[Rfam]
RNA sequence: AGCUUGCUGGGAUCGACACCGCGUGUCACCACCAGGUAGUCGCGUAGCGCGAUGCUGUGGCGGCCCUC
Dot-bracket structure: ...(((.((.(.(.((((.....))))).)....((((.(((((...))))))))).)).))).....
The family of this 68-nucleotide RNA sequence from Mycobacterium adipatum is "ASdes TB sRNA". A search with the family's covariance model found it, with a score of 72 bits. On this family, see Arnvig and Young, Mol Microbiol 2009: "Identification of small RNAs in Mycobacterium tuberculosis". The source organism's lineage runs through Bacteria, Bacillati, Actinomycetota, Mycobacteriales and Mycobacterium. Pairs were carried over by alignment from the consensus structure, which is taken from published work.